The family of this 83-nucleotide RNA from Hermetia illucens is "mir-981 microRNA precursor family". Lineage of the source: Eukaryota > Dicondylia > Aparaglossata > Hermetiinae > Hermetia. The base pairs follow the family's consensus structure, which was predicted with RNAalifold.
RNA sequence: CCACUCAUACUCCGGGUUUCGCGACAAACGGGCUGAAUUAUUAUAAACAAGUUCGUUGUCGACGAAACCUGCAUAUUGCGUGG
Dot-bracket structure: ((((.(......(((((((((........(((((...............)))))........)))))))))......).))))
On this family, see Stark et al., Genome Res 2007: "Systematic discovery and characterization of fly microRNAs using 12 Drosophila genomes".